[Rfam]
Overview: The family of this 114-nucleotide RNA from Pulveribacter suum is "Glycine riboswitch aptamer".
RNA sequence: GUUUCCCUUGCUGGAGAGAGGCCGGAGGCGCUGUGGAGCGCGAUCCGGCCCACCGAAGGAGCAAGCCCCGCGCGCGGGGUGAAUCUCUCAGGUAAAGCGGACAGCCGGGCAAAU
Dot-bracket structure: .....(((.((((......(((((((.................))))))).(((((..(((...((((........))))....))))).)))........)))).))).....
Numbered sequence: 001g002u003u004u005c006c007c008u009u010g011c012u013g014g015a016g017a018g019a020g021g022c023c024g025g026a027g028g029c030g031c032u033g034u035g036g037a038g039c040g041c042g043a044u045c046c047g048g049c050c051c052a053c054c055g056a057a058g059g060a061g062c063a064a065g066c067c068c069c070g071c072g073c074g075c076g077g078g079g080u081g082a083a084u085c086u087c088u089c090a091g092g093u094a095a096a097g098c099g100g101a102c103a104g105c106c107g108g109g110c111a112a113a114u
Stems, first nucleotide, its partner, number of pairs: 006109003010105004020050007052093003055089002059087003065080004